A member of the RNA family "RAGATH-18 RNA" from Thermoflavimicrobium daqui, 66 nucleotides long.
Actinobacteria, Firmicutes, Fusobacteria, Thermotogae (1 example).
The source organism's lineage runs through Bacteria, Bacillota, Bacilli, Caryophanales and Thermoflavimicrobium.

[Rfam]
RNA sequence: CCUGUGGAGUGUUAUACAAACCACAGUAGGGAGAACGUGCCGAGGUGGGACACGUUGAAACAGGAA
Dot-bracket structure: (((((...(((((.......(((.....((.........))....))))))))......)))))..
Numbered sequence: 001c002c003u004g005u006g007g008a009g010u011g012u013u014a015u016a017c018a019a020a021c022c023a024c025a026g027u028a029g030g031g032a033g034a035a036c037g038u039g040c041c042g043a044g045g046u047g048g049g050a051c052a053c054g055u056u057g058a059a060a061c062a063g064g065a066a
Stems, first nucleotide, its partner, number of pairs: 001064005009053005021048003029041002